[Rfam]
RNA sequence: CCGUGCUAGAUGGGGAGGUAGCGGUGCCCUGUAACUCGCAAUCCGCUGUAGCGAGGUUGAAUUCCUGUCUGAGGUUAUACUGAUGUGAGGUUUGGUGCUUGCAAGCAGUGUUGACAGUUGGGUCCUCCGCAAUGGACGCUUGUGAAUCCGGUCAGGUCUGGAAGGAAGCAGCCGUAAGCAAGUUAGUUCAUGUGCCGGGGGGACGCCUGGCUCGAGCUGUGUAGCAAGAGAGCCGCUUGGGUCGUAUCUAUCAGGGACAGGUGCACGG
Numbered sequence: 001c002c003g004u005g006c007u008a009g010a011u012g013g014g015g016a017g018g019u020a021g022c023g024g025u026g027c028c029c030u031g032u033a034a035c036u037c038g039c040a041a042u043c044c045g046c047u048g049u050a051g052c053g054a055g056g057u058u059g060a061a062u063u064c065c066u067g068u069c070u071g072a073g074g075u076u077a078u079a080c081u082g083a084u085g086u087g088a089g090g091u092u093u094g095g096u097g098c099u100u101g102c103a104a105g106c107a108g109u110g111u112u113g114a115c116a117g118u119u120g121g122g123u124c125c126u127c128c129g130c131a132a133u134g135g136a137c138g139c140u141u142g143u144g145a146a147u148c149c150g151g152u153c154a155g156g157u158c159u160g161g162a163a164g165g166a167a168g169c170a171g172c173c174g175u176a177a178g179c180a181a182g183u184u185a186g187u188u189c190a191u192g193u194g195c196c197g198g199g200g201g202g203a204c205g206c207c208u209g210g211c212u213c214g215a216g217c218u219g220u221g222u223a224g225c226a227a228g229a230g231a232g233c234c235g236c237u238u239g240g241g242u243c244g245u246a247u248c249u250a251u252c253a254g255g256g257a258c259a260g261g262u263g264c265a266c267g268g
Stems, first nucleotide, its partner, number of pairs: 001268006009058003012030004017025001019023001035055005064261007073252003081244004086239004093235002098228005105222002107218003116212008124201006130192002133190005138183006149174004157166003
RNA: Bacterial large signal recognition particle RNA
Organism: Paenibacillus sp. GSMTC-2017